A member of the RNA family "Bacterial large signal recognition particle RNA" from Neomoorella thermoacetica, 265 nucleotides long. Rfam classes the family as a non-coding RNA gene. The organism belongs to Neomoorella, within Bacteria. Rfam's curators write: The signal recognition particle (SRP) is a universally conserved ribonucleoprotein involved in the co-translational targeting of proteins to membranes. It scores 209 bits against the family's covariance model. The literature on the family includes a 2002 paper in Nucleic Acids Res by Regalia et al., "Prediction of signal recognition particle RNA genes".

RNA sequence: CCGUGCUAGACGGGGAGGUAGCGGUGCCCUGUAACCCGCAAACCGCUAUAGCGGGGUCGAAGUCCCACUGGCGGACCUGACCUGUGGGGUCCGGCCGGUGUAAGGGGCGAAGAGAGCCGGGUCCUGCGCGACGAGAACUCAUGAACCCCGUCAGGUCCGGGAGGAAGCAGCGGUAAGUGAGCAGCCUCGGGUGCCGCAGGGUUACCUGGUUGGAGUUACCUGCACCGGUAACGCCCGGAGGCCAUGUUCAACAGUGGGUGCACGG
Numbered sequence: 001c002c003g004u005g006c007u008a009g010a011c012g013g014g015g016a017g018g019u020a021g022c023g024g025u026g027c028c029c030u031g032u033a034a035c036c037c038g039c040a041a042a043c044c045g046c047u048a049u050a051g052c053g054g055g056g057u058c059g060a061a062g063u064c065c066c067a068c069u070g071g072c073g074g075a076c077c078u079g080a081c082c083u084g085u086g087g088g089g090u091c092c093g094g095c096c097g098g099u100g101u102a103a104g105g106g107g108c109g110a111a112g113a114g115a116g117c118c119g120g121g122u123c124c125u126g127c128g129c130g131a132c133g134a135g136a137a138c139u140c141a142u143g144a145a146c147c148c149c150g151u152c153a154g155g156u157c158c159g160g161g162a163g164g165a166a167g168c169a170g171c172g173g174u175a176a177g178u179g180a181g182c183a184g185c186c187u188c189g190g191g192u193g194c195c196g197c198a199g200g201g202u203u204a205c206c207u208g209g210u211u212g213g214a215g216u217u218a219c220c221u222g223c224a225c226c227g228g229u230a231a232c233g234c235c236c237g238g239a240g241g242c243c244a245u246g247u248u249c250a251a252c253a254g255u256g257g258g259u260g261c262a263c264g265g
Base pairs, nucleotide, nucleotide: 001265002264003263004262005261006260009058010057011056012030013029014028015027017025019023035055036054037053038052039051064258065257066256067255068254069253070252073249074248075247076246079243081241082240083239085237086236087235088234092233093232096227097226098225099224100223101222104220105219106217107216108215115211116210117209118208119207120206121205122204123200124199125198126197127196128195129191132189133188134187135186138181139180140179141178142177148173149172150171151170156165157164158163